[Rfam]
RNA sequence: CCGCACAGCCGGGGAGUCAGCGGUGCCCUGUACCUGCAAUCCGCUAUAGCAGGGGUGAUAUCCCGCCCAGGGCUCAGGCAGCGGAGCUGCCCCUUGUAAGUGGCGUUGAAGUUUGGGUCUUGCGCAACAGAUCCCCGUGAACCGUGUCAGGGCAGGAAUGCAGCAGCACUAAGCGGGCCCUUCUGUGUGCCGCAGGGAAGCCUGGACCGAGUUAACUGCGAGGGUAACGUCCGCCGUUUGUGUUCAAAGCGGGGUGUGCGG
Dot-bracket structure: ((((((((((((((.(((...))).))))...(((((...........))))))))....((((((...((((..((((.(((((..((..((((((..(((((......((((((((((((((((.((((..(((((.....((((....(((....)))....))))...)))))....))))))...))))))...))))))))...))).)).)))))).))...))))).))))..))))...)))))))))))))
Numbered sequence: 001c002c003g004c005a006c007a008g009c010c011g012g013g014g015a016g017u018c019a020g021c022g023g024u025g026c027c028c029u030g031u032a033c034c035u036g037c038a039a040u041c042c043g044c045u046a047u048a049g050c051a052g053g054g055g056u057g058a059u060a061u062c063c064c065g066c067c068c069a070g071g072g073c074u075c076a077g078g079c080a081g082c083g084g085a086g087c088u089g090c091c092c093c094u095u096g097u098a099a100g101u102g103g104c105g106u107u108g109a110a111g112u113u114u115g116g117g118u119c120u121u122g123c124g125c126a127a128c129a130g131a132u133c134c135c136c137g138u139g140a141a142c143c144g145u146g147u148c149a150g151g152g153c154a155g156g157a158a159u160g161c162a163g164c165a166g167c168a169c170u171a172a173g174c175g176g177g178c179c180c181u182u183c184u185g186u187g188u189g190c191c192g193c194a195g196g197g198a199a200g201c202c203u204g205g206a207c208c209g210a211g212u213u214a215a216c217u218g219c220g221a222g223g224g225u226a227a228c229g230u231c232c233g234c235c236g237u238u239u240g241u242g243u244u245c246a247a248a249g250c251g252g253g254g255u256g257u258g259c260g261g
Stems, first nucleotide, its partner, number of pairs: 001261007008056003011029004016024003033053005061254006070245004076239004081234005088226002092223006100216002102213003111207008119196006125187002128185004134177005144169004152161003
Rfam assigns this 261-nucleotide sequence from [Clostridium] aminophilum to the family "Bacterial large signal recognition particle RNA". The match comes from Rfam's covariance-model search (188 bits). By type it is a non-coding RNA gene. Rfam's curators write: The signal recognition particle (SRP) is a universally conserved ribonucleoprotein involved in the co-translational targeting of proteins to membranes. Rfam links the family to the GO terms signal recognition particle, plasma membrane targeting and SRP-dependent cotranslational protein targeting to membrane, signal sequence recognition.